[Rfam]
RNA sequence: GCAUGUGGGGGUUCUUGGCAUGGUGAUUUGUGGAUUCAGAUGAAAAUCACAUUGCCAGGGAUUCCCACACAUCC
Numbered sequence: 001g002c003a004u005g006u007g008g009g010g011g012u013u014c015u016u017g018g019c020a021u022g023g024u025g026a027u028u029u030g031u032g033g034a035u036u037c038a039g040a041u042g043a044a045a046a047u048c049a050c051a052u053u054g055c056c057a058g059g060g061a062u063u064c065c066c067a068c069a070c071a072u073c074c
Stems, first nucleotide, its partner, number of pairs: 001074001004071003009066002011062010023050007
mir-23 microRNA precursor family: a 74-nucleotide RNA sequence from Megalops atlanticus. The family's consensus secondary structure was predicted with PFOLD. A reference for the family is Chen et al. (2005), "The developmental miRNA profiles of zebrafish as determined by small RNA cloning", Genes Dev. Rfam 15.1 lists 1,403 matches to the family in 646 species.